[Rfam]
RNA sequence: CUCCACCGAUGACCCUUUUUUUUGUGCCCGUGCCUGGGCCACUGAUGGGAUUGAGGCACUAAGGAG
Numbered sequence: 001c002u003c004c005a006c007c008g009a010u011g012a013c014c015c016u017u018u019u020u021u022u023u024g025u026g027c028c029c030g031u032g033c034c035u036g037g038g039c040c041a042c043u044g045a046u047g048g049g050a051u052u053g054a055g056g057c058a059c060u061a062a063g064g065a066g
Stems, first nucleotide, its partner, number of pairs: 001066004

A member of the RNA family "Small nucleolar RNA SNORD66" from Triplophysa tibetana, 66 nucleotides long. The family's RNA type in Rfam is C/D-box small nucleolar RNA. From the family's description: snoRNA HBII-142 is part of the C/D family of snoRNAs. It is the human orthologue of the mouse MBII-142 snoRNA and is predicted to guide 2'O-ribose methylation of small 18S rRNA at residue C1272. A reference for the family is Huttenhofer et al. (2001), "RNomics: an experimental approach that identifies 201 candidates for novel, small, non-messenger RNAs in mouse", EMBO J.